RNA: U4atac minor spliceosomal RNA
Organism: Anopheles stephensi
RNA sequence: UUCUUCCUUGUCUUGGGGAGCAUAAUGUCCAGUGAACGUGUAGUGAGGGCAUUGAUGCUGACAAACCCAUUAAACGAAAGGAUGUGUGUCCUUUUCUUACCCCCGUCCGCUGGUUCGCUUUCAAACAGCUGAUCCUUGGUGGUCGGAAUUUUUGAAGCA
Numbered sequence: 001u002u003c004u005u006c007c008u009u010g011u012c013u014u015g016g017g018g019a020g021c022a023u024a025a026u027g028u029c030c031a032g033u034g035a036a037c038g039u040g041u042a043g044u045g046a047g048g049g050c051a052u053u054g055a056u057g058c059u060g061a062c063a064a065a066c067c068c069a070u071u072a073a074a075c076g077a078a079a080g081g082a083u084g085u086g087u088g089u090c091c092u093u094u095u096c097u098u099a100c101c102c103c104c105g106u107c108c109g110c111u112g113g114u115u116c117g118c119u120u121u122c123a124a125a126c127a128g129c130u131g132a133u134c135c136u137u138g139g140u141g142g143u144c145g146g147a148a149u150u151u152u153u154g155a156a157g158c159a
Stems, first nucleotide, its partner, number of pairs: 005019005020058004024053007036044002103146003107142007